[Rfam]
The record is a 75-nucleotide sequence from Sphingobium sp. SYK-6, which matches "Makes More Granules Regulator RNA (mmgR)" in Rfam. For this family Rfam cites "Evidence for a second class of S-adenosylmethionine riboswitches and other regulatory RNA motifs in alpha-proteobacteria" (Corbino et al., Genome Biol, 2005). It is annotated as a small RNA. A search with the family's covariance model found it, with a score of 53 bits. Rfam describes the family as follows. SuhB later renamed mmgR (makes more granules regulator) was a putative non-coding RNA found multiple times in the Agrobacterium tumefaciens genome and related alpha-proteobacteria. The base pairs follow the family's consensus structure.
RNA sequence: GGAUCGGGCCUUUCAGGCAUCCUCUCCUAAAACUUCCAAGGCCGUCCUUCGGGGCGGCCUUUUUUUUCGUCGGCG
Numbered sequence: 001g002g003a004u005c006g007g008g009c010c011u012u013u014c015a016g017g018c019a020u021c022c023u024c025u026c027c028u029a030a031a032a033c034u035u036c037c038a039a040g041g042c043c044g045u046c047c048u049u050c051g052g053g054g055c056g057g058c059c060u061u062u063u064u065u066u067u068c069g070u071c072g073g074c075g
Stems, first nucleotide, its partner, number of pairs: 008018004039060009